A member of the RNA family "mir-9229 microRNA precursor family" from Pipistrellus kuhlii, 76 nucleotides long.
[Rfam]
RNA sequence: GAGACACCCUUAUUGGGGAGGACUUGCUUCAGUGGGGCUUUGGUGCUUAUUGAGUCUUCUCCUUGAGUGUGUCACU
Numbered sequence: 001g002a003g004a005c006a007c008c009c010u011u012a013u014u015g016g017g018g019a020g021g022a023c024u025u026g027c028u029u030c031a032g033u034g035g036g037g038c039u040u041u042g043g044u045g046c047u048u049a050u051u052g053a054g055u056c057u058u059c060u061c062c063u064u065g066a067g068u069g070u071g072u073c074a075c076u
Base pairs, nucleotide, nucleotide: 001075003073004072005071006070007069009067010066011065012064015061016060017059018058019057021056022055023054029053030052031051032050033049034048035047036046037044038043
The base pairs follow the family's consensus structure, which was predicted with RNAalifold.
NCBI's taxonomy places the organism under Eukaryota, Dipnotetrapodomorpha, Boreoeutheria, Chiroptera, Pipistrellus.